[Rfam]
RNA: Glycine riboswitch aptamer
Organism: Paenibacillus sp. CAA11
RNA sequence: CUCUGGAGAGCAUUUGGCCAUAUCGUCGUUAGGGCCAAAUCACCCAAGGGGAAACGCGCUGCAUCAGAUGAAGGUGCAUUUGCGGCAACUCUCAGGUACCGAGGACAGAG
Dot-bracket structure: (((((......((((((((.............)))))))).(((.(..(((...((((......................))))....))))..)))........)))))